This 122-nucleotide RNA sequence from Salix dunnii belongs to the Rfam family "MIR480 microRNA precursor family". It scores 55 bits against the family's covariance model. Its family is annotated with miRNA-mediated post-transcriptional gene silencing and RISC complex in the Gene Ontology. Pairs were carried over by alignment from the consensus structure, which was predicted with WAR. NCBI's taxonomy places the organism under Eukaryota, Mesangiospermae, Gunneridae, Salicaceae, Salix.
RNA sequence: UAAUUUAUUUGGAGUAGAUCCUUAUCUGAUAAUGGCAUACCUAUACUGGACUGCUUAGAAUCACCUAUUAUAAAGGGGGUCCAUCAUCAAUAAAAUCAUUUGAGUGGCUACAAUGAUAAAUU
Numbered sequence: 001u002a003a004u005u006u007a008u009u010u011g012g013a014g015u016a017g018a019u020c021c022u023u024a025u026c027u028g029a030u031a032a033u034g035g036c037a038u039a040c041c042u043a044u045a046c047u048g049g050a051c052u053g054c055u056u057a058g059a060a061u062c063a064c065c066u067a068u069u070a071u072a073a074a075g076g077g078g079g080u081c082c083a084u085c086a087u088c089a090a091u092a093a094a095a096u097c098a099u100u101u102g103a104g105u106g107g108c109u110a111c112a113a114u115g116a117u118a119a120a121u122u
Base pairs, nucleotide, nucleotide: 004120005119006118007117008115012111014108015107019103024099025098027095030092031091